[Rfam]
RNA sequence: AUAUAAGUAAAGAUUUUUUUUUCAGGCUCAUUGAAUAACUGGUGUACCUGAUUCAUAAUAUAAACCAAAUACAUCAGUUAUUCAAUGAACCUGAAAAAUGAAUCCUUGCUUAUAC
Numbered sequence: 001a002u003a004u005a006a007g008u009a010a011a012g013a014u015u016u017u018u019u020u021u022u023c024a025g026g027c028u029c030a031u032u033g034a035a036u037a038a039c040u041g042g043u044g045u046a047c048c049u050g051a052u053u054c055a056u057a058a059u060a061u062a063a064a065c066c067a068a069a070u071a072c073a074u075c076a077g078u079u080a081u082u083c084a085a086u087g088a089a090c091c092u093g094a095a096a097a098a099u100g101a102a103u104c105c106u107u108g109c110u111u112a113u114a115c
Stems, first nucleotide, its partner, number of pairs: 002114006009107002012104002015101002018098008028088017049067002052064001